The record is a 143-nucleotide RNA sequence from Escherichia coli, which matches "Short Intergenic Abundant RNA" in Rfam.
The family's consensus secondary structure was predicted with PFOLD.
From the family's description: This family contains multiple ncRNA from E. coli that were identified in a large scale screen of E. coli, were they were called candidates 43,55 and 61. These RNAs have also been identified by other groups and called QUAD RNAs.
Gene Ontology term of the family: mRNA binding.
It is annotated as an antitoxin RNA.
The sequence is in the family's curated seed alignment.
The organism belongs to Escherichia coli, within Bacteria.
[Rfam]
RNA sequence: UUGACACUAAGGGCGGAGUGACAUAAUUUCAGGAGUGAGGGUAGAGCGGGGUUUCCCCCGCCCUGGUAGUCUUAGUAAGCUGGCCAGCUAAUGACUAAGAGCACCACGAUGAUGAGUCGCUUCAUCAUGACCCUUUCCUUAUU
Numbered sequence: 001u002u003g004a005c006a007c008u009a010a011g012g013g014c015g016g017a018g019u020g021a022c023a024u025a026a027u028u029u030c031a032g033g034a035g036u037g038a039g040g041g042u043a044g045a046g047c048g049g050g051g052u053u054u055c056c057c058c059c060g061c062c063c064u065g066g067u068a069g070u071c072u073u074a075g076u077a078a079g080c081u082g083g084c085c086a087g088c089u090a091a092u093g094a095c096u097a098a099g100a101g102c103a104c105c106a107c108g109a110u111g112a113u114g115a116g117u118c119g120c121u122u123c124a125u126c127a128u129g130a131c132c133c134u135u136u137c138c139u140u141a142u143u
Base pairs, nucleotide, nucleotide: 031139032138033137034136037135038134039133040132041131042130046061047060064106065105066104109128110127111126112125113124114123